[Rfam]
RNA sequence: UUGCGACAGAGAACCAUGCGUCCAGCUCCUGCUGAAUCCCCCCAGGGUGGAAACGCAGCAAGGGUAGGCGGUUGUAGCGGACGGCAUGUGUUCUCUAUUU
Numbered sequence: 001u002u003g004c005g006a007c008a009g010a011g012a013a014c015c016a017u018g019c020g021u022c023c024a025g026c027u028c029c030u031g032c033u034g035a036a037u038c039c040c041c042c043c044a045g046g047g048u049g050g051a052a053a054c055g056c057a058g059c060a061a062g063g064g065u066a067g068g069c070g071g072u073u074g075u076a077g078c079g080g081a082c083g084g085c086a087u088g089u090g091u092u093c094u095c096u097a098u099u100u
Stems, first nucleotide, its partner, number of pairs: 008096006015088004019083004